[Rfam]
RNA sequence: AAUUCCCUGGGAUGUGCGUCAGCCGGUUCAAGUCCCCGAGCCGAUAAUCAUACCCAACAGGGGAUCGGCCUUCUGGCUAUUGCGCAUGCUCGGCACGACCGAGAAGCCUGCGGUCAGAUUCGAUUCCCGCCUUGAACCUACGGUUCAAGGGCCCAAACCGGCAACGGCAUCUCCGGGGUACCA
Numbered sequence: 001a002a003u004u005c006c007c008u009g010g011g012a013u014g015u016g017c018g019u020c021a022g023c024c025g026g027u028u029c030a031a032g033u034c035c036c037c038g039a040g041c042c043g044a045u046a047a048u049c050a051u052a053c054c055c056a057a058c059a060g061g062g063g064a065u066c067g068g069c070c071u072u073c074u075g076g077c078u079a080u081u082g083c084g085c086a087u088g089c090u091c092g093g094c095a096c097g098a099c100c101g102a103g104a105a106g107c108c109u110g111c112g113g114u115c116a117g118a119u120u121c122g123a124u125u126c127c128c129g130c131c132u133u134g135a136a137c138c139u140a141c142g143g144u145u146c147a148a149g150g151g152c153c154c155a156a157a158c159c160g161g162c163a164a165c166g167g168c169a170u171c172u173c174c175g176g177g178g179u180a181c182c183a
Base pairs, nucleotide, nucleotide: 003180005178006177007176008175009174010173011172012170013169014168015167017166018165019164032152033151034150035149038146039145040144041143042142060128061127062126064124065123066122067121068120072118073117074116075115076114077113078112084107085106089103090102091101092100093099
Shown here is a 183-nucleotide RNA sequence from Aeromonas salmonicida, a member of the family "6S / SsrS RNA". The source organism's lineage runs through Bacteria, Pseudomonadota, Gammaproteobacteria, Aeromonas salmonicida and Aeromonas salmonicida subsp. salmonicida. The family's RNA type in Rfam is non-coding RNA gene. Rfam 15.1 lists 5,006 matches to the family in 4,638 species. E. coli 6S RNA was the first non coding RNA to be sequenced, but its function was unknown until recently. It consists of 184 nucleotides that fold into an extended hairpin structure with a large single-stranded internal bulge. The 6S RNA specifically associates with RNA polymerase holoenzyme containing the sigma70 specificity factor. Pairs were carried over by alignment from the consensus structure, which is taken from published work.